[Rfam]
RNA sequence: CCCUCGCUCAACAAAUCGCUAUUCGAAGCUUACACACAGAGACACUCGGCUUCGGCCAGAGUCUCGUUACAAACCAUUGCUUUGGGAGAAAGUCCCCGGACGUCUCUCUUCGGAGAGUCUGCGGAAACGCGCCGCCAUAGAAGCACUGCGGCUGACCUUUUGCGCCUUGGCCCUCUUCGUGCAUCAUCCCGCCCUGCCCGUCGCUACAUCCAGUCUGCGAGUCUUUGCCGGACCCCAGUUGCAUCUCUCGGCCCCUUUGGACGAAGAUAUGAGUCCGCGUUGGGAUGGUGUGACUGGGACUCUCUGGCAAGGGCAAGCAGGCUUGGAUGAUGGGUGGCCGUGGGAGACGUGAAGUGUGGUAUCGGGUGCUAAGGAUGUGUUGUCGAGGUUGAUAGGUAUGCGAUUGCUCGGUUUACCGGGUUACUCGAUGGGGCUUAUUCUUGAGGCGAGG
Numbered sequence: 001c002c003c004u005c006g007c008u009c010a011a012c013a014a015a016u017c018g019c020u021a022u023u024c025g026a027a028g029c030u031u032a033c034a035c036a037c038a039g040a041g042a043c044a045c046u047c048g049g050c051u052u053c054g055g056c057c058a059g060a061g062u063c064u065c066g067u068u069a070c071a072a073a074c075c076a077u078u079g080c081u082u083u084g085g086g087a088g089a090a091a092g093u094c095c096c097c098g099g100a101c102g103u104c105u106c107u108c109u110u111c112g113g114a115g116a117g118u119c120u121g122c123g124g125a126a127a128c129g130c131g132c133c134g135c136c137a138u139a140g141a142a143g144c145a146c147u148g149c150g151g152c153u154g155a156c157c158u159u160u161u162g163c164g165c166c167u168u169g170g171c172c173c174u175c176u177u178c179g180u181g182c183a184u185c186a187u188c189c190c191g192c193c194c195u196g197c198c199c200g201u202c203g204c205u206a207c208a209u210c211c212a213g214u215c216u217g218c219g220a221g222u223c224u225u226u227g228c229c230g231g232a233c234c235c236c237a238g239u240u241g242c243a244u245c246u247c248u249c250g251g252c253c254c255c256u257u258u259g260g261a262c263g264a265a266g267a268u269a270u271g272a273g274u275c276c277g278c279g280u281u282g283g284g285a286u287g288g289u290g291u292g293a294c295u296g297g298g299a300c301u302c303u304c305u306g307g308c309a310a311g312g313g314c315a316a317g318c319a320g321g322c323u324u325g326g327a328u329g330a331u332g333g334g335u336g337g338c339c340g341u342g343g344g345a346g347a348c349g350u351g352a353a354g355u356g357u358g359g360u361a362u363c364g365g366g367u368g369c370u371a372a373g374g375a376u377g378u379g380u381u382g383u384c385g386a387g388g389u390u391g392a393u394a395g396g397u398a399u400g401c402g403a404u405u406g407c408u409c410g411g412u413u414u415a416c417c418g419g420g421u422u423a424c425u426c427g428a429u430g431g432g433g434c435u436u437a438u439u440c441u442u443g444a445g446g447c448g449a450g451g
Stems, first nucleotide, its partner, number of pairs: 002451006008444004014405006023086001024084006039065005045059001090436003094433004120131004242377003247373002250370003253366003347357004407420005
Dot-bracket structure: .((((((((((..((((((...(((((((.........(((((.(.............).))))).............)))))).)...[[[.[[[[......................((((....))))..............................................................................................................(((..((.((((((...........................................................................................((((...))))......))).))).)).)))......................)))))).(((((....))))).........]]]]]]]....)))).))))))
RNA: RNase MRP